[Rfam]
RNA sequence: UGGGGACACAGCAGGCUCCCCGUCAGACGGGCUACCGUCCAAGCUCUGC
Numbered sequence: 001u002g003g004g005g006a007c008a009c010a011g012c013a014g015g016c017u018c019c020c021c022g023u024c025a026g027a028c029g030g031g032c033u034a035c036c037g038u039c040c041a042a043g044c045u046c047u048g049c
Base pairs, nucleotide, nucleotide: 001022002021003020004019005018006017011049012048013047014046015045026039027038028037029036030035
RNA: chrB-b RNA